RNA sequence: UGGGCCCGGGGGCGGUGGCGGCCAUUUUGUAUCUAACCCUAACUGAGACGGGCGUAGGCGCGGCGCUUUUGCUCCCCGCGCGCUGUUUUUCUCGCUGACUUUCAGCGGGCGGAAAAGCCUCGGCCUACCGCCAUCCACGAUUCAGUCUGAAGUAAACAAAAAAUGUCAGCCGCUGGCUCGCUCACUACUCCCGGGAACCUGCGGUGGCUCGCCCGCCCAGCCCCCGCGCCCGCCUAAGGCCGCGGUUUGCCCGGGGCUUCUCCGGAGGCGCCCAUUGCCGCCGCGAAGAGUUGGUCUCUGUCAGCCGCGGGUGUCUCGUGGGCCAAGGCGAGGCUCUGAUCGCAGGGAAAGGAAUGGAGCGGGUACCCGCGCGCGGUGCGCAUCUCUGAGCUGUGGGACGUGCACUCGGGACUCGGCUCAGACACUU
Numbered sequence: 001u002g003g004g005c006c007c008g009g010g011g012g013c014g015g016u017g018g019c020g021g022c023c024a025u026u027u028u029g030u031a032u033c034u035a036a037c038c039c040u041a042a043c044u045g046a047g048a049c050g051g052g053c054g055u056a057g058g059c060g061c062g063g064c065g066c067u068u069u070u071g072c073u074c075c076c077c078g079c080g081c082g083c084u085g086u087u088u089u090u091c092u093c094g095c096u097g098a099c100u101u102u103c104a105g106c107g108g109g110c111g112g113a114a115a116a117g118c119c120u121c122g123g124c125c126u127a128c129c130g131c132c133a134u135c136c137a138c139g140a141u142u143c144a145g146u147c148u149g150a151a152g153u154a155a156a157c158a159a160a161a162a163a164u165g166u167c168a169g170c171c172g173c174u175g176g177c178u179c180g181c182u183c184a185c186u187a188c189u190c191c192c193g194g195g196a197a198c199c200u201g202c203g204g205u206g207g208c209u210c211g212c213c214c215g216c217c218c219a220g221c222c223c224c225c226g227c228g229c230c231c232g233c234c235u236a237a238g239g240c241c242g243c244g245g246u247u248u249g250c251c252c253g254g255g256g257c258u259u260c261u262c263c264g265g266a267g268g269c270g271c272c273c274a275u276u277g278c279c280g281c282c283g284c285g286a287a288g289a290g291u292u293g294g295u296c297u298c299u300g301u302c303a304g305c306c307g308c309g310g311g312u313g314u315c316u317c318g319u320g321g322g323c324c325a326a327g328g329c330g331a332g333g334c335u336c337u338g339a340u341c342g343c344a345g346g347g348a349a350a351g352g353a354a355u356g357g358a359g360c361g362g363g364u365a366c367c368c369g370c371g372c373g374c375g376g377u378g379c380g381c382a383u384c385u386c387u388g389a390g391c392u393g394u395g396g397g398a399c400g401u402g403c404a405c406u407c408g409g410g411a412c413u414c415g416g417c418u419c420a421g422a423c424a425c426u427u
Stems, first nucleotide, its partner, number of pairs: 005195008014186005020178005065118005077111003081107005094170006100163003198346007211334003214330004220323004225318002229311005241285005247280001249278002253273003287299004357419004361414004366409002376405005383398004
Shown here is a 427-nucleotide RNA sequence from Vicugna pacos, a member of the family "Vertebrate telomerase RNA". On this family, see Antal et al., Nucleic Acids Res 2002: "Analysis of the structure of human telomerase RNA in vivo". Pairs were carried over by alignment from the consensus structure, which is taken from published work. A search with the family's covariance model found it, with a score of 333 bits. Rfam links the family to the GO terms telomere maintenance via telomerase, telomerase catalytic core complex and telomerase activity. From the family's description: Telomerase is a ribonucleoprotein reverse transcriptase that synthesises telomeric DNA. Telomerase RNAs differ greatly in sequence and structure between vertebrates, ciliates and yeasts, but they share a 5' pseudoknot structure close to the template sequence.